[Rfam]
RNA sequence: CUAUCGACCCCGCGUUGUUGCCGGACCCCCGACCUGGCAACAACACGGGGUCUUCUC
Numbered sequence: 001c002u003a004u005c006g007a008c009c010c011c012g013c014g015u016u017g018u019u020g021c022c023g024g025a026c027c028c029c030c031g032a033c034c035u036g037g038c039a040a041c042a043a044c045a046c047g048g049g050g051u052c053u054u055c056u057c
Stems, first nucleotide, its partner, number of pairs: 007051006014044009